[Rfam]
The record is a 73-nucleotide RNA sequence from Pseudoprimorskyibacter insulae, which matches "Singlet oxygen resistance RNA X" in Rfam. The pairing is the family consensus, mapped onto this sequence. Rfam links the family to the GO term response to photooxidative stress. From the family's description: SorX (RSs2461)like SorY is a singlet oxygen induced sRNA that counteracts oxidative stress by targeting mRNA for a transporter in Rhodobacter. It also has an impact on resistance against organic hydroperoxides.

RNA sequence: UCCCGUUGCAUGUGCGGGUUAUCACAUGCACCUCCCUGUUGGACUAGGCCCGGUGAAAAUCCGGGUCUUUUUU
Numbered sequence: 001u002c003c004c005g006u007u008g009c010a011u012g013u014g015c016g017g018g019u020u021a022u023c024a025c026a027u028g029c030a031c032c033u034c035c036c037u038g039u040u041g042g043a044c045u046a047g048g049c050c051c052g053g054u055g056a057a058a059a060u061c062c063g064g065g066u067c068u069u070u071u072u073u
Base pairs, nucleotide, nucleotide: 008029009028010027011026012025013024014023047067048066049065050064051063052062053061